[Rfam]
RNA sequence: UAACAGGAUAGAGGCGCGGAGUUUAUCAGUAAUUUUUUCGAUCUGACAUAGGGAGUUGGUAUAUUGGAUAAAUGAAAGGAAACUUCGCCGAAGGAGUUUUGGUCCCCGGCCUUGGCUUCUGGGCCGCCGCAGAAUAUGCGGCGGACUGUCACAUAAGUGGAGAGCUAUCCAUGGA
Numbered sequence: 001u002a003a004c005a006g007g008a009u010a011g012a013g014g015c016g017c018g019g020a021g022u023u024u025a026u027c028a029g030u031a032a033u034u035u036u037u038u039c040g041a042u043c044u045g046a047c048a049u050a051g052g053g054a055g056u057u058g059g060u061a062u063a064u065u066g067g068a069u070a071a072a073u074g075a076a077a078g079g080a081a082a083c084u085u086c087g088c089c090g091a092a093g094g095a096g097u098u099u100u101g102g103u104c105c106c107c108g109g110c111c112u113u114g115g116c117u118u119c120u121g122g123g124c125c126g127c128c129g130c131a132g133a134a135u136a137u138g139c140g141g142c143g144g145a146c147u148g149u150c151a152c153a154u155a156a157g158u159g160g161a162g163a164g165c166u167a168u169c170c171a172u173g174g175a
Base pairs, nucleotide, nucleotide: 006170007169008168009167010166011165016088017087018086019085020084021083022082023081024080032073033072034071035070037068038067039066040065041064042063092120093119094118095117096116097115098114101111102110103109121147122146124144125143126142127141128140129139130138131137149160150159151158152157
The record is a 175-nucleotide RNA from Lentihominibacter hominis, which matches "Lysine riboswitch aptamer" in Rfam. Riboswitches are metabolite binding domains within certain messenger RNAs that serve as precision sensors for their corresponding targets. Allosteric rearrangement of mRNA structure is mediated by ligand binding, and this results in modulation of gene expression. This family includes riboswitches that sense lysine in a number of genes involved in lysine metabolism, including lysC.